Annotation: The family of this 59-nucleotide RNA from Labrus bergylta is "mir-737 microRNA precursor family". The family has 5 seed sequences and 233 matches in Rfam 15.1.
Nucleotides: 059
Base pairs, nucleotide, nucleotide: 004056005055006054007053008052009051010050011049012048013047014046015045016044017043018042019041020040021039022038023037024036
Number, partner (000 for none) and nucleotide at each position: 001000u002000a003000g004056u005055u006054u007053u008052u009051u010050u011049a012048g013047g014046u015045u016044u017043u018042g019041a020040u021039u022038u023037u024036u025000g026000u027000a028000a029000g030000a031000u032000a033000a034000g035000a036024g037023a038022a039021a040020a041019u042018c043017g044016a045015a046014a047013c048012c049011u050010a051009a052008a053007g054006a055005a056004a057000a058000u059000a